[Rfam]
RNA sequence: GUUGUCUGCUUUCUUGGACGUUUCCUCCCUAAACUCGGCGGUGCCUCUGGCACCGCCUUUUUUUUCGCAUGC
Numbered sequence: 001g002u003u004g005u006c007u008g009c010u011u012u013c014u015u016g017g018a019c020g021u022u023u024c025c026u027c028c029c030u031a032a033a034c035u036c037g038g039c040g041g042u043g044c045c046u047c048u049g050g051c052a053c054c055g056c057c058u059u060u061u062u063u064u065u066c067g068c069a070u071g072c
Base pairs, nucleotide, nucleotide: 004019005018006017007016037057038056039055040054041053042052043051044050045049
About this RNA: A member of the RNA family "Makes More Granules Regulator RNA (mmgR)" from Dankookia rubra, 72 nucleotides long. Its Rfam clan is "suhB sRNA clan". Rfam classes the family as a small RNA. The organism belongs to Dankookia, within Bacteria. Rfam describes the family as follows. SuhB later renamed mmgR (makes more granules regulator) was a putative non-coding RNA found multiple times in the Agrobacterium tumefaciens genome and related alpha-proteobacteria.